Notes
MIR5272 microRNA precursor family: a 73-nucleotide RNA from Medicago truncatula. A search with the family's covariance model found it, with a score of 74 bits.

RNA sequence: UUGGAUGUAAAUUAAUUAUGUUUGGAUACACUUGUUUAAAAGUGAUUUUUAUGAGUUGAUGUUGUUUGGAGAA
Numbered sequence: 001u002u003g004g005a006u007g008u009a010a011a012u013u014a015a016u017u018a019u020g021u022u023u024g025g026a027u028a029c030a031c032u033u034g035u036u037u038a039a040a041a042g043u044g045a046u047u048u049u050u051a052u053g054a055g056u057u058g059a060u061g062u063u064g065u066u067u068g069g070a071g072a073a
Stems, first nucleotide, its partner, number of pairs: 011060007020052002024048004029044005